[Rfam]
A member of the RNA family "UnaL2 LINE 3' element" from Pangasianodon hypophthalmus, 54 nucleotides long. The base pairs follow the family's consensus structure, which is taken from published work. The family's RNA type in Rfam is cis-regulatory element.

RNA sequence: UUCUGUAACUAUUGUAAGUCGCUCUGGAUAAGGGCAUCUGCCAAAUGCCAUAAA
Number, nucleotide and partner (000 for none) at each position: 001u000002u000003c000004u000005g000006u000007a000008a000009c000010u000011a000012u000013u043014g041015u040016a039017a000018g000019u000020c000021g035022c034023u033024c032025u031026g000027g000028a000029u000030a000031a025032g024033g023034g022035c021036a000037u000038c000039u016040g015041c014042c000043a013044a000045a000046u000047g000048c000049c000050a000051u000052a000053a000054a000